RNA: Enterococcus sRNA 64
Nucleotides: 069
Base pairs, nucleotide, nucleotide: 002063003062004061005060006059007058008057009056010055011054014052015051017049022044023043024042025041027039028037029036
Number, partner (000 for none) and nucleotide at each position: 001000u002063a003062a004061a005060g006059u007058a008057c009056u010055c011054g012000c013000a014052u015051c016000u017049u018000u019000u020000c021000u022044g023043a024042u025041u026000a027039g028037g029036u030000g031000u032000a033000g034000u035000c036029a037028c038000u039027u040000a041025a042024a043023u044022c045000u046000u047000a048000c049017a050000u051015g052014g053000a054011c055010g056009a057008g058007u059006g060005c061004u062003u063002u064000a065000u066000a067000u068000g069000a